RNA sequence: UGGGCUGGUCGAAAGACUCGGGUCCACCCGUCGGCGGGGACUUUCCCC
Number, nucleotide and partner (000 for none) at each position: 001u026002g025003g024004g023005c022006u021007g018008g017009u016010c015011g000012a000013a000014a000015g010016a009017c008018u007019c000020g000021g006022g005023u004024c003025c002026a001027c000028c000029c000030g000031u000032c000033g000034g000035c000036g000037g000038g000039g000040a000041c000042u000043u000044u000045c000046c000047c000048c000

Overview
The record is a 48-nucleotide RNA sequence, which matches "DUF3800-XI RNA" in Rfam. The sequence is in the family's curated seed alignment. Pairs were carried over by alignment from the consensus structure, which is taken from published work.